[Rfam]
RNA sequence: GCUCUGGACUGUUAUAGCAAACGAAAGUAGCUUUUAGCCAAAUCGGACAGGGUGAACGAGCAA
Numbered sequence: 001g002c003u004c005u006g007g008a009c010u011g012u013u014a015u016a017g018c019a020a021a022c023g024a025a026a027g028u029a030g031c032u033u034u035u036a037g038c039c040a041a042a043u044c045g046g047a048c049a050g051g052g053u054g055a056a057c058g059a060g061c062a063a
Stems, first nucleotide, its partner, number of pairs: 001061004009050005022045003030038003

RAGATH-18 RNA: a 63-nucleotide sequence from Robinsoniella sp. RHS. The family's RNA type in Rfam is small RNA.